[Rfam]
Notes: This 125-nucleotide sequence from Tenebrio molitor belongs to the Rfam family "U4atac minor spliceosomal RNA". About the family: U4atac is an essential component of the minor U12-type spliceosome complex which is required for removal of the rarer class of eukaryotic introns (AT-AC, U12-type). A search with the family's covariance model found it, with a score of 84 bits. A reference for the family is Lorkovic et al. (2005), "Evolutionary conservation of minor U12-type spliceosome between plants and humans", RNA. The base pairs follow the family's consensus structure, which is taken from published work. The family's RNA type in Rfam is spliceosomal small nuclear RNA. Taxonomically the source falls in Tenebrio (Eukaryota, Panarthropoda, Pancrustacea, Neuropteroidea).
RNA sequence: UCCUUCCUUGUCUGGGGGAGCUGAGUGUUCAAUGAUCAAACAGUGAGACCACUCCUGCUGGCACCCUAACAAUUUAUAAAUGAUCGCACCCGCGGCAAAAGCCUGCGAGUGCAAUUUUUGGAAAG
Numbered sequence: 001u002c003c004u005u006c007c008u009u010g011u012c013u014g015g016g017g018g019a020g021c022u023g024a025g026u027g028u029u030c031a032a033u034g035a036u037c038a039a040a041c042a043g044u045g046a047g048a049c050c051a052c053u054c055c056u057g058c059u060g061g062c063a064c065c066c067u068a069a070c071a072a073u074u075u076a077u078a079a080a081u082g083a084u085c086g087c088a089c090c091c092g093c094g095g096c097a098a099a100a101g102c103c104u105g106c107g108a109g110u111g112c113a114a115u116u117u118u119u120g121g122a123a124a125g
Stems, first nucleotide, its partner, number of pairs: 005019005020058002023055001024053004029048002037043001086112004091107003094103003